[Rfam]
RNA sequence: GGACCUUGUAAUCCCCGGGAUUGGCCGGGGAGCAUCCACCUCCGGACCGGAAUCCGGAGUCGCCAGGGGAG
Numbered sequence: 001g002g003a004c005c006u007u008g009u010a011a012u013c014c015c016c017g018g019g020a021u022u023g024g025c026c027g028g029g030g031a032g033c034a035u036c037c038a039c040c041u042c043c044g045g046a047c048c049g050g051a052a053u054c055c056g057g058a059g060u061c062g063c064c065a066g067g068g069g070a071g
Base pairs, nucleotide, nucleotide: 004068005067006066007065008064012031013030014029015028016027017026018025041058042057043056044055045054046053